[Rfam]
RNA sequence: GGUAGUAGCAAAUAUUCAAAUGAGAACUUUGAAGACUGAAGUGGAGAAAGGUUCCGUGUGAACAGCAAUUGGACACGGGUUAGUCGAUCCUAAGAGAUGAGGUAAUUCUGUAUGAAGGGCUCAAUUGAGCCGUCCAUCGAAAGGGAAACGGGUUAAAAUUCCCGUACUGGAAGUCGGCUGCGGGCGGUAACGCAAACGAGCCUGGUGACGUCGGCGGGAGUUCCGGGAAGAGUUCUCUUUUCUUUUUAACAGUCUACGCGCCCUGGAAUCGGUUUAGCCGGAGAUAGGGCCCAAUGGCUGGUAAAGCACUACAUGUCUCGUAGUGUCCGGUGCACUCUCGACGAUCCUUGAAAAGCUAGGCGAGCCUCGGUACAGAUCGACUCCACUCGUACUCAUAACCGCAUCAGGUCUCCAAGGUGAACAGCCUCUAGUCGA
Numbered sequence: 001g002g003u004a005g006u007a008g009c010a011a012a013u014a015u016u017c018a019a020a021u022g023a024g025a026a027c028u029u030u031g032a033a034g035a036c037u038g039a040a041g042u043g044g045a046g047a048a049a050g051g052u053u054c055c056g057u058g059u060g061a062a063c064a065g066c067a068a069u070u071g072g073a074c075a076c077g078g079g080u081u082a083g084u085c086g087a088u089c090c091u092a093a094g095a096g097a098u099g100a101g102g103u104a105a106u107u108c109u110g111u112a113u114g115a116a117g118g119g120c121u122c123a124a125u126u127g128a129g130c131c132g133u134c135c136a137u138c139g140a141a142a143g144g145g146a147a148a149c150g151g152g153u154u155a156a157a158a159u160u161c162c163c164g165u166a167c168u169g170g171a172a173g174u175c176g177g178c179u180g181c182g183g184g185c186g187g188u189a190a191c192g193c194a195a196a197c198g199a200g201c202c203u204g205g206u207g208a209c210g211u212c213g214g215c216g217g218g219a220g221u222u223c224c225g226g227g228a229a230g231a232g233u234u235c236u237c238u239u240u241u242c243u244u245u246u247u248a249a250c251a252g253u254c255u256a257c258g259c260g261c262c263c264u265g266g267a268a269u270c271g272g273u274u275u276a277g278c279c280g281g282a283g284a285u286a287g288g289g290c291c292c293a294a295u296g297g298c299u300g301g302u303a304a305a306g307c308a309c310u311a312c313a314u315g316u317c318u319c320g321u322a323g324u325g326u327c328c329g330g331u332g333c334a335c336u337c338u339c340g341a342c343g344a345u346c347c348u349u350g351a352a353a354a355g356c357u358a359g360g361c362g363a364g365c366c367u368c369g370g371u372a373c374a375g376a377u378c379g380a381c382u383c384c385a386c387u388c389g390u391a392c393u394c395a396u397a398a399c400c401g402c403a404u405c406a407g408g409u410c411u412c413c414a415a416g417g418u419g420a421a422c423a424g425c426c427u428c429u430a431g432u433c434g435a
Stems, first nucleotide, its partner, number of pairs: 015033006034433004043413004049393002054078006063071002085389003089144002094138002097111002100109003118131003148165005168385004173381005178375002184193003201360006210345004215340007223330003226246006250300005260290006269281004307325006399408002415427004